[Rfam]
RNA sequence: CCAGAGGGCCGGGCGGCCACCGGUCUCCGUUCGCGGAGGCGGGAGGAAAGUCCGGGCUCCAAGAAGCAGCGGUGCCGGGUAACGCCCGGCGGCCCCGGCGAAGGUCGGGGUCAGGGAAAGUGCCACAGAAAGCAUACCGCCCGGCUGGCCCAUCCGUGGGCUCCGGGUAAGGGCGAAAGGGUGCGGUAAGAGCGCACCGCGGGCCGGGCAACCGGAACGGCAUGGCAAACCCCACCGGGAGCAAGACCGAAUAGGGACGGCAUAUGGGCUCGCUUCGCCCCGUCGUCCGGGUUGGUUGCUUGAGGCCGCGGGCAACCGCGGUCCUAGAGGAAUGGUCGCCCAUCCGGCUUCGGCCGGUGGACAGAACCCGGCUUACAGGCCCUCUGGCGAU
Numbered sequence: 001c002c003a004g005a006g007g008g009c010c011g012g013g014c015g016g017c018c019a020c021c022g023g024u025c026u027c028c029g030u031u032c033g034c035g036g037a038g039g040c041g042g043g044a045g046g047a048a049a050g051u052c053c054g055g056g057c058u059c060c061a062a063g064a065a066g067c068a069g070c071g072g073u074g075c076c077g078g079g080u081a082a083c084g085c086c087c088g089g090c091g092g093c094c095c096c097g098g099c100g101a102a103g104g105u106c107g108g109g110g111u112c113a114g115g116g117a118a119a120g121u122g123c124c125a126c127a128g129a130a131a132g133c134a135u136a137c138c139g140c141c142c143g144g145c146u147g148g149c150c151c152a153u154c155c156g157u158g159g160g161c162u163c164c165g166g167g168u169a170a171g172g173g174c175g176a177a178a179g180g181g182u183g184c185g186g187u188a189a190g191a192g193c194g195c196a197c198c199g200c201g202g203g204c205c206g207g208g209c210a211a212c213c214g215g216a217a218c219g220g221c222a223u224g225g226c227a228a229a230c231c232c233c234a235c236c237g238g239g240a241g242c243a244a245g246a247c248c249g250a251a252u253a254g255g256g257a258c259g260g261c262a263u264a265u266g267g268g269c270u271c272g273c274u275u276c277g278c279c280c281c282g283u284c285g286u287c288c289g290g291g292u293u294g295g296u297u298g299c300u301u302g303a304g305g306c307c308g309c310g311g312g313c314a315a316c317c318g319c320g321g322u323c324c325u326a327g328a329g330g331a332a333u334g335g336u337c338g339c340c341c342a343u344c345c346g347g348c349u350u351c352g353g354c355c356g357g358u359g360g361a362c363a364g365a366a367c368c369c370g371g372c373u374u375a376c377a378g379g380c381c382c383u384c385u386g387g388c389g390a391u
Base pairs, nucleotide, nucleotide: 001387002386003385004384005383006382007381008380009379010378011376012340013339014338015337016336017335018334020043021042023040024039025038026037027036028035048374049373050372052371053370054369055368056367057241058240059239060238064275065274066273067272070237071236072235073234074233075089076088077087078086079085090114091112092111093110094109095108096107097106098105099104115232116231120230121229122226123225124224137172138171139168140167141166142165143164144163180198181197182196183195184194185193199221200219201218204215205214206213207212245297246296247295248294255288256287257286258285259284260283266280267279268278269277304323305322306321307320308319309318310317311316
A member of the RNA family "Bacterial RNase P class A" from Sphingomonas sp. MM-1, 391 nucleotides long. It is annotated as a ribozyme.